[Rfam]
RNA sequence: GGACGCGGAGCGUCCGCACUUCGCCUUAAUAGUAUAUACUAUUAAGGCGAAGUGCGGACGCUCCGCGUCC
Dot-bracket structure: ((((((.((((((((((((((((((((((((........)))))))))))))))))))))))).))))))
The family of this 70-nucleotide sequence from Simplexvirus bovinealpha2 is "mir-H11 microRNA precursor family". Gene Ontology terms of the family: miRNA-mediated post-transcriptional gene silencing and RISC complex. The base pairs follow the family's consensus structure, which was predicted with RNAalifold. It scores 87 bits against the family's covariance model. The source organism's lineage runs through Viruses, Duplodnaviria, Heunggongvirae, Herviviricetes and Simplexvirus bovinealpha2.